[Rfam]
RNA sequence: GCGUUCCUCACUGGAGAGAGGCGCUCCCACCCCGGCGAGCGCCCACCGAAGGGGCAAGCGUUGCAGGUGUUGAAGCACCGCACGCCAAUCUCUCAGGUAAAGCGGACAGCGAGGGCAAG
Numbered sequence: 001g002c003g004u005u006c007c008u009c010a011c012u013g014g015a016g017a018g019a020g021g022c023g024c025u026c027c028c029a030c031c032c033c034g035g036c037g038a039g040c041g042c043c044c045a046c047c048g049a050a051g052g053g054g055c056a057a058g059c060g061u062u063g064c065a066g067g068u069g070u071u072g073a074a075g076c077a078c079c080g081c082a083c084g085c086c087a088a089u090c091u092c093u094c095a096g097g098u099a100a101a102g103c104g105g106a107c108a109g110c111g112a113g114g115g116c117a118a119g
Base pairs, nucleotide, nucleotide: 006114007113008112009111011109012108013107020043021042022041023040024039025038026037045098046097047096048094049093052092053091054090058085059084060083061082
Dot-bracket structure: .....((((.(((......(((((((..........))))))).(((((..(((...((((....................))))....))))).)))........))).)))).....